A member of the RNA family "DUF3800-XI RNA" from Pseudobutyrivibrio ruminis, 50 nucleotides long. The base pairs follow the family's consensus structure, which is taken from published work. From the family's description: Actinobacteria, Firmicutes, Proteobacteria, Spirochaetes (1 example).

RNA sequence: AGGGCUGGUCGAAAGACCCAGGUCCAACCUAUUAGGCGGGGCGACUCCCC
Numbered sequence: 001a002g003g004g005c006u007g008g009u010c011g012a013a014a015g016a017c018c019c020a021g022g023u024c025c026a027a028c029c030u031a032u033u034a035g036g037c038g039g040g041g042c043g044a045c046u047c048c049c050c
Stems, first nucleotide, its partner, number of pairs: 002025005007018004